[Rfam]
RNA: Selenocysteine insertion sequence 1
RNA sequence: UACACUUCAGUGAAGACUACAUAGAAAACCUCCGAGGUGUAUGGAAGUCAGAUGUCAGGUGUA
Numbered sequence: 001u002a003c004a005c006u007u008c009a010g011u012g013a014a015g016a017c018u019a020c021a022u023a024g025a026a027a028a029c030c031u032c033c034g035a036g037g038u039g040u041a042u043g044g045a046a047g048u049c050a051g052a053u054g055u056c057a058g059g060u061g062u063a
Base pairs, nucleotide, nucleotide: 001063002062003061004060005059015049016048017047018045020043021042022041023040029037030036031035